[Rfam]
RNA: L4-Archaeoglobi ribosomal protein leades
RNA sequence: CUGACAAAUUCGUAUGGGUCGAUAUCGGAAUAGAUAGCCCGGUUCGCCUUGAAGUACUUUCGAAGGAAGUAUCAAUAGGAGAACGCGUUAAUGUCAG
Numbered sequence: 001c002u003g004a005c006a007a008a009u010u011c012g013u014a015u016g017g018g019u020c021g022a023u024a025u026c027g028g029a030a031u032a033g034a035u036a037g038c039c040c041g042g043u044u045c046g047c048c049u050u051g052a053a054g055u056a057c058u059u060u061c062g063a064a065g066g067a068a069g070u071a072u073c074a075a076u077a078g079g080a081g082a083a084c085g086c087g088u089u090a091a092u093g094u095c096a097g
Stems, first nucleotide, its partner, number of pairs: 001097005011087003015041004023036004044082002047079001054072006